RNA sequence: UCACUCAGGUCGGAUCGGCCCUCCACUGGUUUUCGCCUCGGUCAUAUUUCAAGUAUGAUUAUCACCGGGUGAAAAUCAGAGCAGGGCCGAUUCCACCGG
Numbered sequence: 001u002c003a004c005u006c007a008g009g010u011c012g013g014a015u016c017g018g019c020c021c022u023c024c025a026c027u028g029g030u031u032u033u034c035g036c037c038u039c040g041g042u043c044a045u046a047u048u049u050c051a052a053g054u055a056u057g058a059u060u061a062u063c064a065c066c067g068g069g070u071g072a073a074a075a076u077c078a079g080a081g082c083a084g085g086g087c088c089g090a091u092u093c094c095a096c097c098g099g
Base pairs, nucleotide, nucleotide: 016089017088018087019086020085021084022083024081026079027078028077029076030075031074032073033072034071035070036069037068039067041065042064044062045061046060